RNA sequence: GGCUCGAUAGCUCAGUCGGUAGAGCAAAGGACUGAAAAUCCUUGAGUCGGCAGUUCGAUUCUGCCUCGAGCCA
Numbered sequence: 001g002g003c004u005c006g007a008u009a010g011c012u013c014a015g016u017c018g019g020u021a022g023a024g025c026a027a028a029g030g031a032c033u034g035a036a037a038a039u040c041c042u043u044g045a046g047u048c049g050g051c052a053g054u055u056c057g058a059u060u061c062u063g064c065c066u067c068g069a070g071c072c073a
Base pairs, nucleotide, nucleotide: 001072002071003070004069005068006067007066010025011024012023013022027043028042029041030040031039049065050064051063052062053061
The family of this 73-nucleotide RNA sequence from Helicobacter muridarum is "tRNA".
The family has 954 seed sequences and 5,335,975 matches in Rfam 15.1.
A search with the family's covariance model found it, with a score of 74 bits.
Pairs were carried over by alignment from the consensus structure, which is taken from published work.